Shown here is a 327-nucleotide RNA from Leptocoma aspasia, a member of the family "7SK RNA".
Rfam 15.1 lists 49,373 matches to the family in 668 species.
The family's consensus secondary structure is taken from published work.
A search with the family's covariance model found it, with a score of 65 bits.
RNA sequence: GGAUGUGAAGGCAGUCUAGCUGUGGCAUCUGUCCUCCCAUUGACUGCAGGGUUGAUUCUGCUAUUUUGACUGGUUAGGCCGGGUGUCCCCUUCCUCCUUCAAUAGCUCCAUGUCCCUCCCAAAGCUGCACAUUCUAAGGACAACUUUCCAAAUGGAUUUUUUUGGCUGGAAACUGGCCCAGAAGAGAAGGACCUGAGAGUGCUGUCGACAGCCGGCUUAAUGUCAGCCAGCAUGUGCCCAGGUGGGCAAGAAGGCCAAAGGCAUCCUGGCCUGUAUCAGACACAGCGUGGCCAGCAGGACCAGGGCAGUGACUGUCCCCUUGUACUU
Numbered sequence: 001g002g003a004u005g006u007g008a009a010g011g012c013a014g015u016c017u018a019g020c021u022g023u024g025g026c027a028u029c030u031g032u033c034c035u036c037c038c039a040u041u042g043a044c045u046g047c048a049g050g051g052u053u054g055a056u057u058c059u060g061c062u063a064u065u066u067u068g069a070c071u072g073g074u075u076a077g078g079c080c081g082g083g084u085g086u087c088c089c090c091u092u093c094c095u096c097c098u099u100c101a102a103u104a105g106c107u108c109c110a111u112g113u114c115c116c117u118c119c120c121a122a123a124g125c126u127g128c129a130c131a132u133u134c135u136a137a138g139g140a141c142a143a144c145u146u147u148c149c150a151a152a153u154g155g156a157u158u159u160u161u162u163u164g165g166c167u168g169g170a171a172a173c174u175g176g177c178c179c180a181g182a183a184g185a186g187a188a189g190g191a192c193c194u195g196a197g198a199g200u201g202c203u204g205u206c207g208a209c210a211g212c213c214g215g216c217u218u219a220a221u222g223u224c225a226g227c228c229a230g231c232a233u234g235u236g237c238c239c240a241g242g243u244g245g246g247c248a249a250g251a252a253g254g255c256c257a258a259a260g261g262c263a264u265c266c267u268g269g270c271c272u273g274u275a276u277c278a279g280a281c282a283c284a285g286c287g288u289g290g291c292c293a294g295c296a297g298g299a300c301c302a303g304g305g306c307a308g309u310g311a312c313u314g315u316c317c318c319c320u321u322g323u324a325c326u327u
Stems, first nucleotide, its partner, number of pairs: 001109003005103001006101006014092001019089001024087008032078002035073002038068002042066002045063001046061003113190002116186003119165004124161001166181003233279001239273002245271003296327003300322001302320003305315004